A member of the RNA family "Nucleoid-associated noncoding RNA 4 (CssrE)" from Salmonella enterica, 77 nucleotides long. From the family's description: In E. coli small RNA transcribed from repeated extragenic palindromic element (REP325) called nucleoid-associated ncRNA 4 (nRNA4) collaborates HU protein in condensing the DNA. The secondary structure but not the sequence of the RNA is important in nucleoid condensation. Also identified in Shigella as CssrE. Rfam 15.1 lists 870 matches to the family in 32 species. For this family Rfam cites "A New Noncoding RNA Arranges Bacterial Chromosome Organization" (Qian et al., MBio, 2015). Its family is annotated with bacterial nucleoid DNA packaging, bacterial nucleoid and protein binding in the Gene Ontology. By type it is a small RNA.
RNA sequence: GGCCGGAUAAGGCGUUUACGCCGCCAUACGGCAAUGAUGCACCGCCUGAUGGCGACGCCUCGGCGUCUUAUCAGACC
Numbered sequence: 001g002g003c004c005g006g007a008u009a010a011g012g013c014g015u016u017u018a019c020g021c022c023g024c025c026a027u028a029c030g031g032c033a034a035u036g037a038u039g040c041a042c043c044g045c046c047u048g049a050u051g052g053c054g055a056c057g058c059c060u061c062g063g064c065g066u067c068u069u070a071u072c073a074g075a076c077c
Base pairs, nucleotide, nucleotide: 002032003031004030005029007027008026011022012021013020014019044076046074047073048072049071050070051069054067055066056065057064058063